RNA sequence: CGGUUUCCUGCAUCAACAGUGCUUGAACGGAACCG
Numbered sequence: 001c002g003g004u005u006u007c008c009u010g011c012a013u014c015a016a017c018a019g020u021g022c023u024u025g026a027a028c029g030g031a032a033c034c035g
Stems, first nucleotide, its partner, number of pairs: 001035005007030002010028001013026004017021001
The family of this 35-nucleotide RNA sequence from Tupaia belangeri is "Iron response element I". The source organism's lineage runs through Eukaryota, Opisthokonta, Deuterostomia, Tetrapoda and Tupaia. It is one of the family's seed sequences. Its family is annotated with response to iron ion in the Gene Ontology. Pairs were carried over by alignment from the consensus structure, which is taken from published work. The literature on the family includes a 1987 paper in Science by Hentze et al., "Identification of the iron-responsive element for the translational regulation of human ferritin mRNA".